Rfam assigns this 114-nucleotide RNA sequence from Hucho hucho to the family "Potassium channel RNA editing signal". Gene Ontology term of the family: adenosine to inosine editing. The family's consensus secondary structure is taken from published work. The match comes from Rfam's covariance-model search (88 bits). Taxonomically the source falls in Hucho (Eukaryota, Bilateria, Deuterostomia, Salmoniformes).

[Rfam]
RNA sequence: CUGGGCUAUGGGGACAUGUACCCGGAGACCUGUUCCGGAAUGGUAAUUGGAGCCCUGUGUGCUCUGGCAGGUAUUCUGACCAUAGCCAUGCCUGUCCCAGUCAUAGUCAAUAAC
Numbered sequence: 001c002u003g004g005g006c007u008a009u010g011g012g013g014a015c016a017u018g019u020a021c022c023c024g025g026a027g028a029c030c031u032g033u034u035c036c037g038g039a040a041u042g043g044u045a046a047u048u049g050g051a052g053c054c055c056u057g058u059g060u061g062c063u064c065u066g067g068c069a070g071g072u073a074u075u076c077u078g079a080c081c082a083u084a085g086c087c088a089u090g091c092c093u094g095u096c097c098c099a100g101u102c103a104u105a106g107u108c109a110a111u112a113a114c
Stems, first nucleotide, its partner, number of pairs: 002113001004111001008107002011104001013102003018097001020095002037077004049063002